[Rfam]
RNA sequence: UUUGCUUUAAUGAGAAUAGAAACGUAAACUAUGACCUAGGGGUUUCUGUUGGAUAAUUAGCAGUUUA
Numbered sequence: 001u002u003u004g005c006u007u008u009a010a011u012g013a014g015a016a017u018a019g020a021a022a023c024g025u026a027a028a029c030u031a032u033g034a035c036c037u038a039g040g041g042g043u044u045u046c047u048g049u050u051g052g053a054u055a056a057u058u059a060g061c062a063g064u065u066u067a
Stems, first nucleotide, its partner, number of pairs: 001067001004064002015050009029039003
RNA: Selenocysteine insertion sequence 1